[Rfam]
RNA sequence: GAAUACGGCGAAGAGGAUGAAGAGUAGUGUGCUGGUGCAAUUGUAAGCAUUAUGGGGGGCCUGCCGAUGUCGGAGGCCCCUUUUUUAG
Dot-bracket structure: ..............................(((.(((....))).))).....(((((((.(.(((....))).))))))))......
Numbered sequence: 001g002a003a004u005a006c007g008g009c010g011a012a013g014a015g016g017a018u019g020a021a022g023a024g025u026a027g028u029g030u031g032c033u034g035g036u037g038c039a040a041u042u043g044u045a046a047g048c049a050u051u052a053u054g055g056g057g058g059g060c061c062u063g064c065c066g067a068u069g070u071c072g073g074a075g076g077c078c079c080c081u082u083u084u085u086u087a088g
Stems, first nucleotide, its partner, number of pairs: 031048003035044003054082007062075001064073003